The family of this 65-nucleotide sequence from Caenorhabditis brenneri is "mir-239 microRNA precursor family".
Lineage of the source: Eukaryota > Ecdysozoa > Rhabditina > Peloderinae > Caenorhabditis.
On this family, see Ruby et al., Cell 2006: "Large-scale sequencing reveals 21U-RNAs and additional microRNAs and endogenous siRNAs in C. elegans".
RNA sequence: UUUGUACUACACAUAGGUACUGGAAAACUUACCACAGAUUAUCCAGUGCUUGGUCUAGUGCAAGA
Numbered sequence: 001u002u003u004g005u006a007c008u009a010c011a012c013a014u015a016g017g018u019a020c021u022g023g024a025a026a027a028c029u030u031a032c033c034a035c036a037g038a039u040u041a042u043c044c045a046g047u048g049c050u051u052g053g054u055c056u057a058g059u060g061c062a063a064g065a
Stems, first nucleotide, its partner, number of pairs: 001064007011054002014052005020046003024040002
The family's consensus secondary structure was predicted with RNAalifold. The sequence is in the family's curated seed alignment.